[Rfam]
RNA sequence: GGUGGGAGACGACGUGCCGAUCCGAACGGUCCCCACGGUCGCCGCGACGGCGCGGCGGGGUGGGAGAACCGGUCGCCAGACCGUUCGGGGAGCGAGUGGCGAGACCGCCGUCCGGUC
Dot-bracket structure: ...(...((((.(((......((((((((.......[[[[[[[.....................................))))))))...)))...]]]]]..]]..))))...).
RNA: c-di-GMP-II-GAG riboswitch aptamer